[Rfam]
RNA sequence: AAGGAUAGAGGUUGAAAAGUAUCCGCCUCCAACGCGCCACUUAGCUAGUGGGUCGAGAAAUGCGGGCGACAUUCGGCGGUCCCGCCUAUCCUU
Dot-bracket structure: ((((((((..((((........[[[[[..)))).(.(((((.....))))).....)....(((((........]]]]].)))))))))))))
Overview:
This 93-nucleotide RNA sequence belongs to the Rfam family "skipping-rope RNA". By type it is a small RNA.